[Rfam]
RNA sequence: UGUCAUAUCAGCCUAUCACUUCGUAUAACCCUGUUAAUCCGGUACAGGGGUCUCUACCAGAAUCCGUAAAAUUCUGAUUACGAAGAGCUAAGCGAUUGAU
Numbered sequence: 001u002g003u004c005a006u007a008u009c010a011g012c013c014u015a016u017c018a019c020u021u022c023g024u025a026u027a028a029c030c031c032u033g034u035u036a037a038u039c040c041g042g043u044a045c046a047g048g049g050g051u052c053u054c055u056a057c058c059a060g061a062a063u064c065c066g067u068a069a070a071a072u073u074c075u076g077a078u079u080a081c082g083a084a085g086a087g088c089u090a091a092g093c094g095a096u097u098g099a100u
Base pairs, nucleotide, nucleotide: 019085020084021083022082023081024080025079029049030048031047032046033045034044058076059075060074061073062072063071